[Rfam]
RNA sequence: GGCAGCUCUCAGGUGAUGCACCCAGGAAUUGGGCUCCCUUCUCUCUGGUUCCAAGUGCAUCACCUGAGAACCGCA
Numbered sequence: 001g002g003c004a005g006c007u008c009u010c011a012g013g014u015g016a017u018g019c020a021c022c023c024a025g026g027a028a029u030u031g032g033g034c035u036c037c038c039u040u041c042u043c044u045c046u047g048g049u050u051c052c053a054a055g056u057g058c059a060u061c062a063c064c065u066g067a068g069a070a071c072c073g074c075a
Stems, first nucleotide, its partner, number of pairs: 002074002005071001007069011019057003025052009
RNA: mir-9223 microRNA precursor family
Organism: Myotis lucifugus